Shown here is a 169-nucleotide RNA from Anopheles gambiae, a member of the family "U4atac minor spliceosomal RNA". It scores 71 bits against the family's covariance model. U4atac is an essential component of the minor U12-type spliceosome complex which is required for removal of the rarer class of eukaryotic introns (AT-AC, U12-type). A reference for the family is Lorkovic et al. (2005), "Evolutionary conservation of minor U12-type spliceosome between plants and humans", RNA. Lineage of the source: Eukaryota > Metazoa > Panorpida > gambiae species complex > Anopheles gambiae.
RNA sequence: UUCUUCCUUGUCUUGGGGAGCAUAAUGUCCAGUGAACGUGUAGUGAGGGCAUUGAUGCUGACAAACCCAUCUUAAAGAGCAGGAUCUUGAAGGUCCUGUUUCUUUGUAAACCCCCGUCCGUCGGUUCGCUUUCAAACAGCUGUACCAGGUGGUCGGAAUUUUUGAAGCG
Numbered sequence: 001u002u003c004u005u006c007c008u009u010g011u012c013u014u015g016g017g018g019a020g021c022a023u024a025a026u027g028u029c030c031a032g033u034g035a036a037c038g039u040g041u042a043g044u045g046a047g048g049g050c051a052u053u054g055a056u057g058c059u060g061a062c063a064a065a066c067c068c069a070u071c072u073u074a075a076a077g078a079g080c081a082g083g084a085u086c087u088u089g090a091a092g093g094u095c096c097u098g099u100u101u102c103u104u105u106g107u108a109a110a111c112c113c114c115c116g117u118c119c120g121u122c123g124g125u126u127c128g129c130u131u132u133c134a135a136a137c138a139g140c141u142g143u144a145c146c147a148g149g150u151g152g153u154c155g156g157a158a159u160u161u162u163u164g165a166a167g168c169g
Stems, first nucleotide, its partner, number of pairs: 005019005020058004024053007036044002114156003118152002123146003